[Rfam]
RNA sequence: AUGCUUACCUGGCGGGGGAGAUACCAUGAUCACUAAAAUUGGUUCUCCCAGGCGAGGCUCAUCCAUUGCACUCGGUGUGCUGACCCUGCGAUUUCCCCAAAUGCAGGAAACUCCCGGCUGCAUAAUUUGUGGUAGUGGGGACUGGGUGGCUCACCCCUGA
Numbered sequence: 001a002u003g004c005u006u007a008c009c010u011g012g013c014g015g016g017g018g019a020g021a022u023a024c025c026a027u028g029a030u031c032a033c034u035a036a037a038a039u040u041g042g043u044u045c046u047c048c049c050a051g052g053c054g055a056g057g058c059u060c061a062u063c064c065a066u067u068g069c070a071c072u073c074g075g076u077g078u079g080c081u082g083a084c085c086c087u088g089c090g091a092u093u094u095c096c097c098c099a100a101a102u103g104c105a106g107g108a109a110a111c112u113c114c115c116g117g118c119u120g121c122a123u124a125a126u127u128u129g130u131g132g133u134a135g136u137g138g139g140g141a142c143u144g145g146g147u148g149g150c151u152c153a154c155c156c157c158u159g160a
Base pairs, nucleotide, nucleotide: 012121013120014119015118016049017048018047019046020045021044023043024042025041026040050087051086052085054084056081057080058079060077061076062075064074089116090115093110094109096107097106136159137158138157139156140155143153144152145151146150
RNA: U1 spliceosomal RNA
Organism: Polypterus senegalus